[Rfam]
RNA: Small nucleolar RNA SNORD19
RNA sequence: GAGCUAUGAAGAUUCCUUUCUUCCAUCUGAGAUUCCAUUGAAGACAUAAGAUCCAACUCUGAGCUCACUGCC
Numbered sequence: 001g002a003g004c005u006a007u008g009a010a011g012a013u014u015c016c017u018u019u020c021u022u023c024c025a026u027c028u029g030a031g032a033u034u035c036c037a038u039u040g041a042a043g044a045c046a047u048a049a050g051a052u053c054c055a056a057c058u059c060u061g062a063g064c065u066c067a068c069u070g071c072c
Stems, first nucleotide, its partner, number of pairs: 001066004